[Rfam]
RNA sequence: AUGUUUUGGUAAUCGCUAUAAACGCUUGUUUAUAGAGGAAAGUCCAUGCUCACACAGGCUGCGAUGCCUGUAGUGUUCGUGCUUGAUGAAAAAAUAAAUCAAGGCAGUCACAUUUGUGAUUGACGGCAGGGAAGGACGCUAAGUCUUCGGAUAUGCGUUCAGGUACCUUGAAAGUGCCACAGUGACGAAGUCAGGCGGGAAACCGACCUGAGUGGAACGAGGUAAACCCCACGAGUGAGCAACCCAAAUUUUGGUAGGGGCAUCUUGGAUUAGGGAAUUGAACCGAAACAAGGACAUAGUGAUCUAUGUAGAUAGAUGGUUACCGCUAGAGUACGAGGCUGACCACCGUUUGUAGUGCUUUAGAACAGAACAUGGCUUAUAAAA
Number, nucleotide and partner (000 for none) at each position: 001a000002u000003g000004u384005u383006u382007u000008g324009g323010u322011a321012a320013u319014c318015g000016c035017u034018a033019u032020a031021a030022a000023c000024g000025c000026u000027u000028g000029u000030u021031u020032a019033u018034a017035g016036a000037g000038g000039a000040a378041a377042g376043u000044c375045c374046a373047u372048g371049c239050u238051c237052a236053c235054a071055c070056a069057g068058g067059c066060u000061g000062c000063g000064a000065u000066g059067c058068c057069u056070g055071u054072a000073g000074u000075g000076u000077u234078c233079g232080u231081g230082c103083u102084u101085g100086a099087u098088g000089a000090a000091a000092a000093a000094a000095u000096a000097a000098a087099u086100c085101a084102a083103g082104g124105c122106a121107g120108u119109c118110a117111c000112a000113u000114u000115u000116g000117u110118g109119a108120u107121u106122g105123a000124c104125g229126g228127c000128a168129g167130g166131g000132a000133a000134g000135g000136a158137c157138g156139c155140u000141a000142a000143g152144u151145c150146u000147u000148c000149g000150g145151a144152u143153a000154u000155g139156c138157g137158u136159u000160c000161a000162g000163g000164u000165a000166c130167c129168u128169u000170g000171a000172a000173a000174g227175u226176g223177c222178c221179a000180c000181a000182g000183u000184g000185a000186c000187g000188a000189a000190g000191u211192c210193a209194g208195g207196c205197g204198g203199g000200a000201a000202a000203c198204c197205g196206a000207c195208c194209u193210g192211a191212g000213u000214g000215g000216a000217a000218c000219g000220a000221g178222g177223u176224a000225a000226a175227c174228c126229c125230c081231a080232c079233g078234a077235g053236u052237g051238a050239g049240c000241a000242a000243c259244c258245c257246a000247a000248a000249u000250u000251u000252u000253g000254g000255u000256a000257g245258g244259g243260g000261c000262a000263u293264c292265u291266u290267g289268g000269a000270u000271u000272a000273g000274g000275g000276a000277a000278u000279u000280g000281a000282a000283c000284c000285g000286a000287a000288a000289c267290a266291a265292g264293g263294a309295c308296a307297u306298a305299g304300u000301g000302a000303u000304c299305u298306a297307u296308g295309u294310a000311g000312a000313u000314a000315g000316a000317u000318g014319g013320u012321u011322a010323c009324c008325g000326c363327u362328a361329g360330a359331g358332u357333a356334c355335g000336a000337g000338g000339c000340u000341g000342a000343c000344c000345a000346c000347c000348g000349u000350u000351u000352g000353u000354a000355g334356u333357g332358c331359u330360u329361u328362a327363g326364a000365a000366c000367a000368g000369a000370a000371c048372a047373u046374g045375g044376c042377u041378u040379a000380u000381a000382a006383a005384a004

Background
The record is a 384-nucleotide RNA from Halolactibacillus alkaliphilus, which matches "Bacterial RNase P class B" in Rfam. Rfam classes the family as a ribozyme. Rfam's curators write: Ribonuclease P (RNase P) is a ubiquitous endoribonuclease, found in archaea, bacteria and eukarya as well as chloroplasts and mitochondria.